Acido-Lenti-1 RNA: a 45-nucleotide RNA from Haloferula rosea.
Lineage of the source: Bacteria > Verrucomicrobiota > Verrucomicrobiales > Verrucomicrobiaceae > Haloferula.
By type it is a small RNA.

RNA sequence: CCCAAGGCUGCGCCUUGGGCUGAGGGAUGUCGGCCCGUUGGGCCU
Numbered sequence: 001c002c003c004a005a006g007g008c009u010g011c012g013c014c015u016u017g018g019g020c021u022g023a024g025g026g027a028u029g030u031c032g033g034c035c036c037g038u039u040g041g042g043c044c045u
Base pairs, nucleotide, nucleotide: 001019002018003017004016005015006014007013008012032044033043034042035041036040